A member of the RNA family "Bacterial large subunit ribosomal RNA" from Tenacibaculum jejuense, 306 nucleotides of a longer RNA. On this family, see Yusupov et al., Science 2001: "Crystal structure of the ribosome at 5.5 A resolution".
RNA sequence: GAUAAAGGGGGCGAGAAACCCCCUCACCGAAAGACUAAGGUUUCCUCAGCGAUGCUAAUCAGCUGAGGGUUAGUCGGGACCUAAGGCGAACCCGAAAGGGGUAGUCGAUGGACAACAGGUUAAUAUUCCUGUACCUGCACUCAUUAAAAGUGACGGAUCUCCCAGGUGCUUACGGGGUGACGGAAGUCCCCGUUGAGCCUAGGCUUCGGCCGAAGCGAAAGCAAGUAAGAGGUUCCAAGAAAAGCGAGAGCUGCAGCCCGUACCGUAAACCGACACAGGUAGUUGGGAUGAGAAUUCUAAGGUGCU
Numbered sequence: 001g002a003u004a005a006a007g008g009g010g011g012c013g014a015g016a017a018a019c020c021c022c023c024u025c026a027c028c029g030a031a032a033g034a035c036u037a038a039g040g041u042u043u044c045c046u047c048a049g050c051g052a053u054g055c056u057a058a059u060c061a062g063c064u065g066a067g068g069g070u071u072a073g074u075c076g077g078g079a080c081c082u083a084a085g086g087c088g089a090a091c092c093c094g095a096a097a098g099g100g101g102u103a104g105u106c107g108a109u110g111g112a113c114a115a116c117a118g119g120u121u122a123a124u125a126u127u128c129c130u131g132u133a134c135c136u137g138c139a140c141u142c143a144u145u146a147a148a149a150g151u152g153a154c155g156g157a158u159c160u161c162c163c164a165g166g167u168g169c170u171u172a173c174g175g176g177g178u179g180a181c182g183g184a185a186g187u188c189c190c191c192g193u194u195g196a197g198c199c200u201a202g203g204c205u206u207c208g209g210c211c212g213a214a215g216c217g218a219a220a221g222c223a224a225g226u227a228a229g230a231g232g233u234u235c236c237a238a239g240a241a242a243a244g245c246g247a248g249a250g251c252u253g254c255a256g257c258c259c260g261u262a263c264c265g266u267a268a269a270c271c272g273a274c275a276c277a278g279g280u281a282g283u284u285g286g287g288a289u290g291a292g293a294a295u296u297c298u299a300a301g302g303u304g305c306u
Stems, first nucleotide, its partner, number of pairs: 006024006025304004033284004039264002044068006053061002075260004080111002085106003089102001091100003115132005135256005150245002155235004161229001167223005172193006194201002203216005270279002286298003